This 99-nucleotide sequence from Hibiscus syriacus belongs to the Rfam family "Small nucleolar RNA Z266".
RNA sequence: AGAAGGCAAGAGUGAUGAAUCAAUUAGAUGUGUGAAUGGGAUUUUUCUCAUUUUGAACUCAAACUUUUGCGGCAUUAUAAUUUGUCUGACUUGCCAUUG
Numbered sequence: 001a002g003a004a005g006g007c008a009a010g011a012g013u014g015a016u017g018a019a020u021c022a023a024u025u026a027g028a029u030g031u032g033u034g035a036a037u038g039g040g041a042u043u044u045u046u047c048u049c050a051u052u053u054u055g056a057a058c059u060c061a062a063a064c065u066u067u068u069g070c071g072g073c074a075u076u077a078u079a080a081u082u083u084g085u086c087u088g089a090c091u092u093g094c095c096a097u098u099g
Stems, first nucleotide, its partner, number of pairs: 002098002005095006
By type it is a C/D-box small nucleolar RNA. A search with the family's covariance model found it, with a score of 78 bits. The family has 11 seed sequences and 719 matches in Rfam 15.1. Pairs were carried over by alignment from the consensus structure, which was predicted with PFOLD. NCBI's taxonomy places the organism under Eukaryota, Streptophyta, Euphyllophyta, Gunneridae, Hibiscus.